Shown here is a 92-nucleotide RNA sequence from Corymbia citriodora, a member of the family "Small nucleolar RNA snR60/Z15/Z230/Z193/J17". Gene Ontology terms of the family: RNA processing and nucleolus. The base pairs follow the family's consensus structure. Its Rfam clan is "SNORD77 clan". The family's RNA type in Rfam is C/D-box small nucleolar RNA. It scores 81 bits against the family's covariance model.
RNA sequence: GCUGGUCAUGUGAUGAUUAAAAGCAUAGUUCAGAUGAUAAUCCCAGUGAUUAUAACAUUUCAUUAGUCUUUCGCUCCUAUCUGAUGACCCAA
Numbered sequence: 001g002c003u004g005g006u007c008a009u010g011u012g013a014u015g016a017u018u019a020a021a022a023g024c025a026u027a028g029u030u031c032a033g034a035u036g037a038u039a040a041u042c043c044c045a046g047u048g049a050u051u052a053u054a055a056c057a058u059u060u061c062a063u064u065a066g067u068c069u070u071u072c073g074c075u076c077c078u079a080u081c082u083g084a085u086g087a088c089c090c091a092a
Base pairs, nucleotide, nucleotide: 004089005088006087007086008085